[Rfam]
RNA sequence: AAACCCUAACAACCUUUUAUUUUUUUACUUUACUCUAUUUAUAGAGUAAAACUCCUUUUACUGCCUCAUUACCCAAAUGAGGCAGUUUUUCUU
Dot-bracket structure: ............................(((((((........)))))))..........(((((((((.......)))))))))........